[Rfam]
RNA sequence: GGGGAUAUUGCACAUUACUAAGUUGCAUGUUGUCACAGUCCCAGUGCAACUUAGUGUGUGCGAUAUUUUC
Numbered sequence: 001g002g003g004g005a006u007a008u009u010g011c012a013c014a015u016u017a018c019u020a021a022g023u024u025g026c027a028u029g030u031u032g033u034c035a036c037a038g039u040c041c042c043a044g045u046g047c048a049a050c051u052u053a054g055u056g057u058g059u060g061c062g063a064u065a066u067u068u069u070c
Stems, first nucleotide, its partner, number of pairs: 006065010017055012
Dot-bracket structure: .....((((((((((.((((((((((((...............)))))))))))))))))))))).....

Rfam assigns this 70-nucleotide RNA from Microcaecilia unicolor to the family "mir-32 microRNA precursor family". A reference for the family is Coutinho et al. (2007), "Discovery and profiling of bovine microRNAs from immune-related and embryonic tissues", Physiol Genomics. Rfam links the family to the GO terms miRNA-mediated post-transcriptional gene silencing, RISC complex and Wnt signaling pathway. The match comes from Rfam's covariance-model search (93 bits).